[Rfam]
RNA sequence: UGAGAGAACUCUCCUGAAGGAACUAGGCAAGAUAACUCUGUAAUUUCGAAAGAAAGAGUGGCUAUAAAAUUAUUUGAUAAUUUAAAGGCUGGCACAUAAAUGUGAGGUACGACUGUUUACUAAAAACACAGCACUUUGCUAACAUAAUAAUGGAUGUAUAAAGUGUGAUACCUGCUCAAUGCCAAACGUAUAAAAUUUUUGGUUUUACGAUCAAAAAUCAAACAUUGGUCAAUAGCGGCUGUAACUAUGACAGUCCUAAGGUAGCGAAAUACCUAGUCGGAUAAUUGCCGACGUGCAUGAAUGGUUUAACGAUACUUCAACUGUCUCCAGGAGAGACUCA
Numbered sequence: 001u002g003a004g005a006g007a008a009c010u011c012u013c014c015u016g017a018a019g020g021a022a023c024u025a026g027g028c029a030a031g032a033u034a035a036c037u038c039u040g041u042a043a044u045u046u047c048g049a050a051a052g053a054a055a056g057a058g059u060g061g062c063u064a065u066a067a068a069a070u071u072a073u074u075u076g077a078u079a080a081u082u083u084a085a086a087g088g089c090u091g092g093c094a095c096a097u098a099a100a101u102g103u104g105a106g107g108u109a110c111g112a113c114u115g116u117u118u119a120c121u122a123a124a125a126a127c128a129c130a131g132c133a134c135u136u137u138g139c140u141a142a143c144a145u146a147a148u149a150a151u152g153g154a155u156g157u158a159u160a161a162a163g164u165g166u167g168a169u170a171c172c173u174g175c176u177c178a179a180u181g182c183c184a185a186a187c188g189u190a191u192a193a194a195a196u197u198u199u200u201g202g203u204u205u206u207a208c209g210a211u212c213a214a215a216a217a218u219c220a221a222a223c224a225u226u227g228g229u230c231a232a233u234a235g236c237g238g239c240u241g242u243a244a245c246u247a248u249g250a251c252a253g254u255c256c257u258a259a260g261g262u263a264g265c266g267a268a269a270u271a272c273c274u275a276g277u278c279g280g281a282u283a284a285u286u287g288c289c290g291a292c293g294u295g296c297a298u299g300a301a302u303g304g305u306u307u308a309a310c311g312a313u314a315c316u317u318c319a320a321c322u323g324u325c326u327c328c329a330g331g332a333g334a335g336a337c338u339c340a
Base pairs, nucleotide, nucleotide: 001340002339003338004337009335010334011333012332013331014330015329016328018326019325020324035059036058037057038056039055044049060090061089062088063087065085067083068082069081070080071079091095103319104318105317106316107315108314109313110311111310114128115127116126131166132165133164134163135162136161137160138159139156143152144151145150170305171304172303174236175235176234179233180232181229182228183227184226185225189224191222195218196217198215199214200213201212202211203210204209237255238254239253240252241251242250256260276292277291278290279289280288
This 340-nucleotide part of an RNA belongs to the Rfam family "Bacterial large subunit ribosomal RNA". The match comes from Rfam's covariance-model search (927 bits). Rfam links the family to the GO terms ribosome and structural constituent of ribosome. The family has 102 seed sequences and 51,934 matches in Rfam 15.1.